[Rfam]
RNA sequence: UUCACAAUGAAUCGCCAUCCGUCAACGAGGGUUCGUCCACGGGUGCUUUUGUU
Numbered sequence: 001u002u003c004a005c006a007a008u009g010a011a012u013c014g015c016c017a018u019c020c021g022u023c024a025a026c027g028a029g030g031g032u033u034c035g036u037c038c039a040c041g042g043g044u045g046c047u048u049u050u051g052u053u
Stems, first nucleotide, its partner, number of pairs: 016045007025036004